Shown here is a 91-nucleotide RNA sequence from Dipodomys ordii, a member of the family "mir-339 microRNA precursor family". Rfam links the family to the GO terms RISC complex and miRNA-mediated post-transcriptional gene silencing. It scores 104 bits against the family's covariance model. The literature on the family includes a 2010 paper in Mol Hum Reprod by Ahn et al., "MicroRNA transcriptome in the newborn mouse ovaries determined by massive parallel sequencing".
[Rfam]
RNA sequence: UGGGGCGGCCACCCUCCCUGUCCUCCAGGAGCUCACGUAUGCCUGCCUGUGAGCGCCUCGAUGACAGAGCCGGUGUCCGCCCAGCUUCUGC
Numbered sequence: 001u002g003g004g005g006c007g008g009c010c011a012c013c014c015u016c017c018c019u020g021u022c023c024u025c026c027a028g029g030a031g032c033u034c035a036c037g038u039a040u041g042c043c044u045g046c047c048u049g050u051g052a053g054c055g056c057c058u059c060g061a062u063g064a065c066a067g068a069g070c071c072g073g074u075g076u077c078c079g080c081c082c083a084g085c086u087u088c089u090g091c
Stems, first nucleotide, its partner, number of pairs: 005080004010075004016069001018067003022063001024061002027058003031054006037046003
Dot-bracket structure: ....((((.((((..(.(((.(.((.(((.(((((((((....)))..)))))).))).)).).))).)..)))).))))...........